[Rfam]
Description
The record is a 107-nucleotide RNA sequence from Prunus armeniaca, which matches "MIR6274 microRNA precursor family" in Rfam. The family's consensus secondary structure was predicted with RNAalifold. A search with the family's covariance model found it, with a score of 100 bits. Taxonomically the source falls in Prunus (Eukaryota, Streptophyta, Euphyllophyta, eudicotyledons).
RNA sequence: GUAGAGCACUGUUUUGUUAUUUCCGGUCAAUAACAUAAUGACAUAUAAAAAAGUUAUCUUACAUGUCAUUGUGUUAUUGACCGGGAAUAACAAAAAAUUAUAUCUGC
Numbered sequence: 001g002u003a004g005a006g007c008a009c010u011g012u013u014u015u016g017u018u019a020u021u022u023c024c025g026g027u028c029a030a031u032a033a034c035a036u037a038a039u040g041a042c043a044u045a046u047a048a049a050a051a052a053g054u055u056a057u058c059u060u061a062c063a064u065g066u067c068a069u070u071g072u073g074u075u076a077u078u079g080a081c082c083g084g085g086a087a088u089a090a091c092a093a094a095a096a097a098u099u100a101u102a103u104c105u106g107c
Stems, first nucleotide, its partner, number of pairs: 002106004012095009022085023046061003050057001